[Rfam]
RNA: Bacterial RNase P class A
RNA sequence: CCAGAGGGUUGGGCGGCCGCGGGCAUCGAAAGAUGCGCGAGGAAAGUCCGGGCUUCACGGAACGACGGUGCCGGGUAACGCCCGGCGGGGGCGACCCCAGGGACAGUGCCACAGAGAGCAGACGGCUAAGGCUUCGGCCCAGUCAGCGUGAAAGGGUGCGGUAAGAGCGCACCGCGCGCCUGGUAACAGGGGCGGCACGGCAAACCCCACCGGAAGCAAGAUCGAAUAGGGGUGGCAUGGGGCCGCAAGGCUCCGGGGCGUGUUCCCGCCCGCUACCCGGGUUGAUUGCUUGAGGCGGCGCGCAAGCGUCGUCCUAGAGGAAUGGUCGCACAGCCUUCUUUAUGAAGGUGGACAGAACCCGGCUUACAGACCCUCUGGCAAU
Numbered sequence: 001c002c003a004g005a006g007g008g009u010u011g012g013g014c015g016g017c018c019g020c021g022g023g024c025a026u027c028g029a030a031a032g033a034u035g036c037g038c039g040a041g042g043a044a045a046g047u048c049c050g051g052g053c054u055u056c057a058c059g060g061a062a063c064g065a066c067g068g069u070g071c072c073g074g075g076u077a078a079c080g081c082c083c084g085g086c087g088g089g090g091g092c093g094a095c096c097c098c099a100g101g102g103a104c105a106g107u108g109c110c111a112c113a114g115a116g117a118g119c120a121g122a123c124g125g126c127u128a129a130g131g132c133u134u135c136g137g138c139c140c141a142g143u144c145a146g147c148g149u150g151a152a153a154g155g156g157u158g159c160g161g162u163a164a165g166a167g168c169g170c171a172c173c174g175c176g177c178g179c180c181u182g183g184u185a186a187c188a189g190g191g192g193c194g195g196c197a198c199g200g201c202a203a204a205c206c207c208c209a210c211c212g213g214a215a216g217c218a219a220g221a222u223c224g225a226a227u228a229g230g231g232g233u234g235g236c237a238u239g240g241g242g243c244c245g246c247a248a249g250g251c252u253c254c255g256g257g258g259c260g261u262g263u264u265c266c267c268g269c270c271c272g273c274u275a276c277c278c279g280g281g282u283u284g285a286u287u288g289c290u291u292g293a294g295g296c297g298g299c300g301c302g303c304a305a306g307c308g309u310c311g312u313c314c315u316a317g318a319g320g321a322a323u324g325g326u327c328g329c330a331c332a333g334c335c336u337u338c339u340u341u342a343u344g345a346a347g348g349u350g351g352a353c354a355g356a357a358c359c360c361g362g363c364u365u366a367c368a369g370a371c372c373c374u375c376u377g378g379c380a381a382u
Base pairs, nucleotide, nucleotide: 001378002377003376004375005374006373007372008371009370010369011367013329014328015327016326017325018324020039021038023036024035025034026033027032044365045364046363048362049361050360051359052358053216054215055214056213062264066212067211068210069209070208071085072084073083074082075081086100087098088097089096090095101207102206106205107204108201109200110199125143126142127141130138155173156172157171158170159169160168174196175194176193177192179190180189181188182187220287221286222285223284230278231277232276233275234274235273256271257270258269259268260267294313295312296311297310298309299308300307301306